The family of this 85-nucleotide RNA sequence from Mustela putorius is "Small nucleolar RNA SNORD121A".
[Rfam]
RNA sequence: GUCCAGAAAACAAUGAUGUGAGAAAUUACCAAGCACAUAUCUGAUGUUGCCAUGUGGACAUUGAGCUACUCUGAGUUUUCUGGAA
Numbered sequence: 001g002u003c004c005a006g007a008a009a010a011c012a013a014u015g016a017u018g019u020g021a022g023a024a025a026u027u028a029c030c031a032a033g034c035a036c037a038u039a040u041c042u043g044a045u046g047u048u049g050c051c052a053u054g055u056g057g058a059c060a061u062u063g064a065g066c067u068a069c070u071c072u073g074a075g076u077u078u079u080c081u082g083g084a085a
Base pairs, nucleotide, nucleotide: 002084003083004082005081006080008078009077010076011075

It is annotated as a C/D-box small nucleolar RNA. Rfam 15.1 lists 881 matches to the family in 444 species.